[Rfam]
RNA: ROOL RNA
RNA sequence: UAAUUGAAUUAAAAAUUAAAUUACCUCGGUUAUAAAAGAGUUGAUAACUCUCCGAGACACUUCGUAUAAUGCGGUGAAAGAGAUAAGGAUACUUUCUCUUUUAACCGUUGGAAAUUUCGUGAGAAAUACGCCAAUAAGAGGAAACCUCAAAAAUUAAGAAGUGGUGCAGAGAGCUAUCGUAAUCAAAAAAGCAAGAACUCAAGGCGAGAGUAAUAGACGCUCUUGUGGAGAAUAAGCAUUAAACUUGUUGGGUGGAACCAAUAGAGUAAAUAAUGUAUUCCAAAAUAAUCUCGUUCGUCGUGAAGCGGAGAAAUCUGUGUAUAACUUGAGUAGCUUGGUCGAGUAGCCCAAAGACGAAUAUUACUAAUAUCUUUAAUAUUAUUUAUUGGACAUAAUGAAAGAAGAAAUUUUCUGAAUGUCGGGUGAAAGUUAGAAGUAACCAAUCUUCUACGAGUUUGUGAUGUGUGGUAUAAUUCCAUAUAACGGCUUAGUGUCCGUGUCUAGGGUAGGAAGUAUAGAGACGACGGUUUCUAUGCUCAGACCUAUCUUCUCGGUGCUUGAAAAUUGAUGCGAUAGUGGAUGUAAGACGAAGGUCUAUUUAAUUUUUAAUUCAGU
Numbered sequence: 001u002a003a004u005u006g007a008a009u010u011a012a013a014a015a016u017u018a019a020a021u022u023a024c025c026u027c028g029g030u031u032a033u034a035a036a037a038g039a040g041u042u043g044a045u046a047a048c049u050c051u052c053c054g055a056g057a058c059a060c061u062u063c064g065u066a067u068a069a070u071g072c073g074g075u076g077a078a079a080g081a082g083a084u085a086a087g088g089a090u091a092c093u094u095u096c097u098c099u100u101u102u103a104a105c106c107g108u109u110g111g112a113a114a115u116u117u118c119g120u121g122a123g124a125a126a127u128a129c130g131c132c133a134a135u136a137a138g139a140g141g142a143a144a145c146c147u148c149a150a151a152a153a154u155u156a157a158g159a160a161g162u163g164g165u166g167c168a169g170a171g172a173g174c175u176a177u178c179g180u181a182a183u184c185a186a187a188a189a190a191g192c193a194a195g196a197a198c199u200c201a202a203g204g205c206g207a208g209a210g211u212a213a214u215a216g217a218c219g220c221u222c223u224u225g226u227g228g229a230g231a232a233u234a235a236g237c238a239u240u241a242a243a244c245u246u247g248u249u250g251g252g253u254g255g256a257a258c259c260a261a262u263a264g265a266g267u268a269a270a271u272a273a274u275g276u277a278u279u280c281c282a283a284a285a286u287a288a289u290c291u292c293g294u295u296c297g298u299c300g301u302g303a304a305g306c307g308g309a310g311a312a313a314u315c316u317g318u319g320u321a322u323a324a325c326u327u328g329a330g331u332a333g334c335u336u337g338g339u340c341g342a343g344u345a346g347c348c349c350a351a352a353g354a355c356g357a358a359u360a361u362u363a364c365u366a367a368u369a370u371c372u373u374u375a376a377u378a379u380u381a382u383u384u385a386u387u388g389g390a391c392a393u394a395a396u397g398a399a400a401g402a403a404g405a406a407a408u409u410u411u412c413u414g415a416a417u418g419u420c421g422g423g424u425g426a427a428a429g430u431u432a433g434a435a436g437u438a439a440c441c442a443a444u445c446u447u448c449u450a451c452g453a454g455u456u457u458g459u460g461a462u463g464u465g466u467g468g469u470a471u472a473a474u475u476c477c478a479u480a481u482a483a484c485g486g487c488u489u490a491g492u493g494u495c496c497g498u499g500u501c502u503a504g505g506g507u508a509g510g511a512a513g514u515a516u517a518g519a520g521a522c523g524a525c526g527g528u529u530u531c532u533a534u535g536c537u538c539a540g541a542c543c544u545a546u547c548u549u550c551u552c553g554g555u556g557c558u559u560g561a562a563a564a565u566u567g568a569u570g571c572g573a574u575a576g577u578g579g580a581u582g583u584a585a586g587a588c589g590a591a592g593g594u595c596u597a598u599u600u601a602a603u604u605u606u607u608a609a610u611u612c613a614g615u
Stems, first nucleotide, its partner, number of pairs: 008611001010609001012607004017602001020600001025056005037051005058163006073105001075103003079099005085094003107132001109130002114127005138148004175576001186566001189565001190559002193336003197331007204294006220230004236276006244266003247262003253282004295357005305318005340429001346424004351419001411541004433449001435447002451553003454498001504549003509544002513537001515534003519530004585596004